[Rfam]
RNA sequence: UUUACUAUUAUCUCUGAUUCGCUUGGUGCAGGUCGGGAAUUCAUAUAAAGCUUUGAUUUGAUUGAGAUUUGAUUAUAAAUUUUAGUUUCGAUCUAGAAAGCAAAUUGAAAUCCCGCCUUGCAUCAACUGAAUCGGAGGUUAUAGUGAAA
Numbered sequence: 001u002u003u004a005c006u007a008u009u010a011u012c013u014c015u016g017a018u019u020c021g022c023u024u025g026g027u028g029c030a031g032g033u034c035g036g037g038a039a040u041u042c043a044u045a046u047a048a049a050g051c052u053u054u055g056a057u058u059u060g061a062u063u064g065a066g067a068u069u070u071g072a073u074u075a076u077a078a079a080u081u082u083u084a085g086u087u088u089c090g091a092u093c094u095a096g097a098a099a100g101c102a103a104a105u106u107g108a109a110a111u112c113c114c115g116c117c118u119u120g121c122a123u124c125a126a127c128u129g130a131a132u133c134g135g136a137g138g139u140u141a142u143a144g145u146g147a148a149a
Stems, first nucleotide, its partner, number of pairs: 013136002017132004023126010034115005040109004
RNA: MIR168 microRNA precursor family
Organism: Aquilegia coerulea